[Rfam]
RNA sequence: AGCAUAUGCUUGUCUCAAAGCUUAAGCCAUGCAUGUCUAAGUACACACGGGCGGUACAGUGAAACUGCGAAUGGCUCAUUAAAUCAGUUAUGGUUCCUUUGGUCGCUCCUCUCCCACUCCUUGGAUAACUGUGGUAAUUCUAGAGCUAAUACAUGCCGACGAGCGCCGACCUCCGGGGACGCGUGCAUUUAUCAGACCAAAACCAACCCGGGCCCGCCCGGCAGCUUUGGUGACUCUAGAUAACCUCGAGCCGAUCGCACGCCCCCGCGGCGGCGACGACCCAUUCGAAUGUCUGCCCUAUCAACUUUCGAUGGUACUGUCUGUGCCUACCAUGGUGACCACGGGUGACGGGGAAUCAGGGUUCGAUUCCGGAGAGGGAGCCUGAGAAACGGCUACCACAUCCAAGGAAGGCAGCAGGCGCGCAAAUUACCCACUCCCGACCCGGGGAGGUAGUGACGAAAAAUAACAAUACAGGACUCUUUCGAGGCCCUGUAAUUGGAAUGAGCGCACUUUAAAUCCUUGAGCGAGGAUCCAUUGGAGGGCAAGUCUGGUGCCAGCAGCCGCGGUAAUUCCAGCUCCAAUAGCGUAUCUUAAAGUUGC
Number, nucleotide and partner (000 for none) at each position: 001a592002g591003c000004a589005u588006a587007u586008g585009c584010u583011u000012g000013u461014c000015u459016c458017a000018a000019a454020g421021c000022u000023u000024a000025a000026g419027c418028c417029a000030u416031g415032c414033a000034u000035g068036u067037c000038u000039a000040a066041g065042u064043a000044c000045a000046c000047a060048c059049g000050g000051g000052c000053g000054g000055u000056a000057c000058a000059g048060u047061g000062a000063a000064a042065c041066u040067g036068c035069g000070a000071a000072u000073g000074g000075c374076u373077c372078a000079u000080u000081a000082a000083a000084u000085c295086a294087g293088u000089u000090a290091u289092g000093g000094u288095u287096c000097c000098u000099u000100u283101g282102g281103u000104c000105g000106c000107u000108c000109c000110u000111c000112u000113c000114c000115c000116a000117c000118u000119c000120c155121u000122u153123g152124g000125a000126u000127a000128a000129c145130u144131g000132u142133g141134g140135u000136a000137a000138u000139u000140c134141u133142a132143g000144a130145g129146c000147u000148a000149a000150u000151a000152c123153a122154u000155g120156c000157c000158g000159a000160c000161g000162a000163g184164c183165g182166c181167c000168g000169a000170c177171c176172u000173c000174c000175g000176g171177g170178g000179a000180c000181g166182c165183g164184u163185g000186c000187a000188u000189u243190u242191a241192u240193c239194a000195g000196a000197c000198c000199a000200a000201a000202a231203c230204c229205a228206a000207c000208c000209c000210g219211g218212g217213c000214c000215c000216g000217c212218c211219c210220g000221g000222c000223a000224g000225c000226u000227u000228u205229g204230g203231u202232g000233a000234c000235u000236c000237u000238a000239g193240a192241u191242a190243a189244c000245c000246u000247c000248g000249a000250g000251c000252c000253g000254a000255u276256c275257g274258c273259a000260c272261g271262c270263c269264c000265c000266c000267g000268c000269g263270g262271c261272g260273g258274c257275g256276a255277c000278g000279a000280c000281c102282c101283a100284u000285u000286c000287g095288a094289a091290u090291g000292u000293c087294u086295g085296c000297c345298c344299u343300a000301u000302c000303a000304a336305c335306u334307u000308u000309c000310g000311a333312u332313g331314g330315u329316a328317c000318u000319g000320u000321c000322u000323g000324u000325g000326c000327c000328u316329a315330c314331c313332a312333u311334g306335g305336u304337g000338a000339c000340c000341a000342c000343g299344g298345g297346u000347g000348a000349c371350g370351g369352g368353g364354a363355a362356u361357c000358a000359g000360g000361g356362u355363u354364c353365g000366a000367u000368u352369c351370c350371g349372g077373a076374g075375a000376g397377g396378g000379a394380g393381c392382c000383u000384g000385a000386g000387a000388a000389a000390c000391g000392g381393c380394u379395a000396c377397c376398a000399c410400a000401u408402c407403c000404a000405a000406g000407g402408a401409a000410g399411g000412c000413a000414g032415c031416a030417g028418g027419c026420g000421c020422g000423c000424a000425a000426a000427u452428u000429a451430c450431c449432c000433a000434c000435u447436c446437c445438c444439g443440a000441c000442c000443c439444g438445g437446g436447g435448a000449g431450g430451u429452a427453g000454u019455g000456a000457c000458g016459a015460a000461a013462a000463a000464u000465a000466a000467c498468a497469a496470u494471a493472c492473a491474g490475g489476a000477c486478u485479c484480u000481u000482u000483c000484g479485a478486g477487g000488c000489c475490c474491u473492g472493u471494a470495a000496u469497u468498g467499g000500a000501a000502u000503g000504a000505g525506c524507g000508c000509a521510c000511u000512u000513u000514a000515a000516a000517u000518c000519c000520u000521u509522g000523a000524g506525c505526g000527a000528g000529g000530a000531u000532c000533c000534a000535u581536u580537g579538g578539a577540g576541g000542g000543c000544a000545a000546g000547u000548c575549u574550g573551g572552u000553g000554c000555c000556a000557g564558c563559a000560g000561c000562c000563g558564c557565g000566g000567u000568a000569a000570u000571u000572c551573c550574a549575g548576c540577u539578c538579c537580a536581a535582u000583a010584g009585c008586g007587u006588a005589u004590c000591u002592u001593a000594a000595a000596g000597u000598u000599g000600c000
Shown here is a 600-nucleotide part of an RNA from Accipiter nisus, a member of the family "Eukaryotic small subunit ribosomal RNA". The source organism's lineage runs through Eukaryota, Sarcopterygii, Tetrapoda, Telluraves and Accipiter. The family is grouped with related families in Rfam's "SSU clan".